mir-8834 microRNA precursor family: a 105-nucleotide sequence from Vulpes vulpes. Gene Ontology terms of the family: RISC complex and miRNA-mediated post-transcriptional gene silencing. The family's consensus secondary structure was predicted with RNAalifold. A search with the family's covariance model found it, with a score of 63 bits.
[Rfam]
RNA sequence: AGGAGGAACAGCCACAAUGGCUACAGCAGCUCUGGAAACCUGGAUUCAGCCCCCGCAGUAACUCCGGGGCUCUCCAUCUGUAGGGCCUGGAGGCUCCGGGGUGGA
Numbered sequence: 001a002g003g004a005g006g007a008a009c010a011g012c013c014a015c016a017a018u019g020g021c022u023a024c025a026g027c028a029g030c031u032c033u034g035g036a037a038a039c040c041u042g043g044a045u046u047c048a049g050c051c052c053c054c055g056c057a058g059u060a061a062c063u064c065c066g067g068g069g070c071u072c073u074c075c076a077u078c079u080g081u082a083g084g085g086c087c088u089g090g091a092g093g094c095u096c097c098g099g100g101g102u103g104g105a
Base pairs, nucleotide, nucleotide: 002097003096004095005094009089010088011087012085013084019078020077022076025073026072028071029070030069031068032067033066034065035064036063040058041057042056